[Rfam]
RNA: Bacterial large subunit ribosomal RNA, nucleotides 2702 to 2963
RNA sequence: GGAAAAGUGAGGGGAGUCAUCUUCAGUACGAGAGGACCGAGAUGGCUUGACCGCUAGUGCGCCAGUUGGGGGGCCUCCUCCAGAGCUGGGUAGCUACGUCAAGAAGGGAUAAGCGCUGAAAGCAUCUAAGCGCGAAGCCGACCCGAAGAUAACUUUUCCCACUCUCUUCGAAGAGUCAAGAUCCCAGGAAGAAGACCUGGUGGAUAGGCUGCGCGUGGACGCCUGGUAACAGGUGGAGCGGAGCAGUACUAAUGAUCGUACG
Numbered sequence: 001g002g003a004a005a006a007g008u009g010a011g012g013g014g015a016g017u018c019a020u021c022u023u024c025a026g027u028a029c030g031a032g033a034g035g036a037c038c039g040a041g042a043u044g045g046c047u048u049g050a051c052c053g054c055u056a057g058u059g060c061g062c063c064a065g066u067u068g069g070g071g072g073g074c075c076u077c078c079u080c081c082a083g084a085g086c087u088g089g090g091u092a093g094c095u096a097c098g099u100c101a102a103g104a105a106g107g108g109a110u111a112a113g114c115g116c117u118g119a120a121a122g123c124a125u126c127u128a129a130g131c132g133c134g135a136a137g138c139c140g141a142c143c144c145g146a147a148g149a150u151a152a153c154u155u156u157u158c159c160c161a162c163u164c165u166c167u168u169c170g171a172a173g174a175g176u177c178a179a180g181a182u183c184c185c186a187g188g189a190a191g192a193a194g195a196c197c198u199g200g201u202g203g204a205u206a207g208g209c210u211g212c213g214c215g216u217g218g219a220c221g222c223c224u225g226g227u228a229a230c231a232g233g234u235g236g237a238g239c240g241g242a243g244c245a246g247u248a249c250u251a252a253u254g255a256u257c258g259u260a261c262g
Stems, first nucleotide, its partner, number of pairs: 001159008012144003017045007046103006055096003062089005067082006107139002113133005162175003180257004184200005205251003208247005214240002221234005